[Rfam]
A member of the RNA family "Xanthomonadaceae sRNA sX15" from Luteimonas marina, 159 nucleotides long. The match comes from Rfam's covariance-model search (131 bits). Lineage of the source: Bacteria > Pseudomonadati > Gammaproteobacteria > Lysobacterales > Luteimonas. The base pairs follow the family's consensus structure, which was predicted with CMfinder. The family's RNA type in Rfam is small RNA. The literature on the family includes a 2011 paper in Nucleic Acids Res by Schmidtke et al., "Genome-wide transcriptome analysis of the plant pathogen Xanthomonas identifies sRNAs with putative virulence functions".
RNA sequence: GUCGAGAGUUCUCCCGGCGUGCCCAGCCUUAUCGAUACGAGCGCCAACUCGAGCAACUGUUCGGGCGUGUGCGGGGAGAUUCCGGCGUGGCGACCUGGCUCGCUGGCGGUCGUUCAGACCCAGGGAUUGACGGUCGACCACGCCGGCUCUCGACGCCUA
Numbered sequence: 001g002u003c004g005a006g007a008g009u010u011c012u013c014c015c016g017g018c019g020u021g022c023c024c025a026g027c028c029u030u031a032u033c034g035a036u037a038c039g040a041g042c043g044c045c046a047a048c049u050c051g052a053g054c055a056a057c058u059g060u061u062c063g064g065g066c067g068u069g070u071g072c073g074g075g076g077a078g079a080u081u082c083c084g085g086c087g088u089g090g091c092g093a094c095c096u097g098g099c100u101c102g103c104u105g106g107c108g109g110u111c112g113u114u115c116a117g118a119c120c121c122a123g124g125g126a127u128u129g130a131c132g133g134u135c136g137a138c139c140a141c142g143c144c145g146g147c148u149c150u151c152g153a154c155g156c157c158u159a
Stems, first nucleotide, its partner, number of pairs: 001154008009078005015067001017066002020063002024059003036052001039050003082146009092135004108120004